[Rfam]
The record is an 86-nucleotide RNA sequence from Solanum commersonii, which matches "MIR8024 microRNA precursor family" in Rfam. Gene Ontology terms of the family: RISC complex and miRNA-mediated post-transcriptional gene silencing.
Nucleotides: 086
Base pairs, nucleotide, nucleotide: 001084002083003082006079009076010075011074012073013072014071018067019066020065021064025059026058027057028056032053033052034051035050036049
Number, partner (000 for none) and nucleotide at each position: 001084u002083u003082g004000c005000a006079g007000a008000c009076u010075u011074u012073g013072a014071a015000g016000a017000c018067u019066u020065u021064a022000a023000u024000u025059u026058g027057c028056a029000u030000a031000c032053u033052u034051g035050g036049a037000a038000g039000a040000u041000u042000u043000g044000a045000a046000g047000a048000c049036u050035u051034u052033a053032g054000c055000u056028u057027g058026c059025a060000u061000a062000c063000u064021u065020g066019a067018a068000a069000g070000a071014u072013u073012u074011g075010a076009a077000g078000a079006c080000a081000u082003c083002a084001a085000c086000u